[Rfam]
RNA sequence: UAUGCUCUUGGCAAUGGAUUCUGCCAGAUCUUUGGAUCGAACCGCAUCAUAUUUUCGAUGCUGAUGAUUCCUGUCUUUUA
Number, nucleotide and partner (000 for none) at each position: 001u000002a000003u000004g000005c000006u000007c000008u000009u000010g025011g024012c023013a022014a000015u000016g071017g070018a069019u000020u067021c066022u013023g012024c011025c010026a000027g000028a000029u000030c000031u000032u000033u000034g000035g000036a000037u000038c000039g000040a000041a000042c000043c000044g061045c060046a059047u058048c000049a000050u000051a000052u000053u000054u000055u000056c000057g000058a047059u046060g045061c044062u000063g000064a000065u000066g021067a020068u000069u018070c017071c016072u000073g000074u000075c000076u000077u000078u000079u000080a000